[Rfam]
RNA sequence: GUCCUGAUGCCAUUUCGCUGGUAGCUACAGCUUUGACUGGAGAUAUUACAUUGUGCCAAGAGAGUGAUCUUGACGUCUCAAAUUUGAUAGGAAUCUGUGGACAUGAUUUAGUAGGUACGCAGAGCCAUAUUUUGUGAUUACACUU
Numbered sequence: 001g002u003c004c005u006g007a008u009g010c011c012a013u014u015u016c017g018c019u020g021g022u023a024g025c026u027a028c029a030g031c032u033u034u035g036a037c038u039g040g041a042g043a044u045a046u047u048a049c050a051u052u053g054u055g056c057c058a059a060g061a062g063a064g065u066g067a068u069c070u071u072g073a074c075g076u077c078u079c080a081a082a083u084u085u086g087a088u089a090g091g092a093a094u095c096u097g098u099g100g101a102c103a104u105g106a107u108u109u110a111g112u113a114g115g116u117a118c119g120c121a122g123a124g125c126c127a128u129a130u131u132u133u134g135u136g137a138u139u140a141c142a143c144u145u
Stems, first nucleotide, its partner, number of pairs: 003055001005053005013045001015043002018040001020038003024031002078137003082133001090126002095122003099118001101116002
This 145-nucleotide RNA sequence from Triticum aestivum belongs to the Rfam family "Small nucleolar RNA snoR2/U65". Rfam links the family to the GO terms nucleolus and RNA processing. Its Rfam clan is "SNORA65 clan". The family's consensus secondary structure was predicted with WAR. NCBI's taxonomy places the organism under Eukaryota, Streptophyta, Tracheophyta, Pooideae, Triticum. Rfam classes the family as an H/ACA-box small nucleolar RNA.